[Rfam]
RNA sequence: AUUACUUCACAACACCGAGCUACCGGCUCUAAGCCUAAUAAACGUGUAUCUAAGGGUAUAACUCAAUAGAUUUUGACAUGCACGGGCAUUUGGGAUGAGCGGUAUGCCGUGGCACUAACGCCACCGGGUAUGACGGGAAACGGUCAUACCUCCCCAUUUGGAAAGGUGAAUUAUGCUAACUGAC
Numbered sequence: 001a002u003u004a005c006u007u008c009a010c011a012a013c014a015c016c017g018a019g020c021u022a023c024c025g026g027c028u029c030u031a032a033g034c035c036u037a038a039u040a041a042a043c044g045u046g047u048a049u050c051u052a053a054g055g056g057u058a059u060a061a062c063u064c065a066a067u068a069g070a071u072u073u074u075g076a077c078a079u080g081c082a083c084g085g086g087c088a089u090u091u092g093g094g095a096u097g098a099g100c101g102g103u104a105u106g107c108c109g110u111g112g113c114a115c116u117a118a119c120g121c122c123a124c125c126g127g128g129u130a131u132g133a134c135g136g137g138a139a140a141c142g143g144u145c146a147u148a149c150c151u152c153c154c155c156a157u158u159u160g161g162a163a164a165g166g167u168g169a170a171u172u173a174u175g176c177u178a179a180c181u182g183a184c
Stems, first nucleotide, its partner, number of pairs: 003178002006175001013168004019107002024102001026100004034093002109124005126151009136141001152161002
Dot-bracket structure: ..((.(......((((..((...(.((((....((........................................................))...)))).)...)).(((((......))))).(((((((((.(....).)))))))))((......))...))))......).))......
Shown here is a 184-nucleotide RNA sequence from Arsukibacterium sp. MJ3, a member of the family "Molybdenum/Tungsten riboswitch aptamer (Moco RNA motif)". Taxonomically the source falls in Arsukibacterium (Bacteria, Pseudomonadati, Pseudomonadota, Gammaproteobacteria). The family has 160 seed sequences and 1,248 matches in Rfam 15.1. The match comes from Rfam's covariance-model search (69 bits). The family's consensus secondary structure is taken from published work.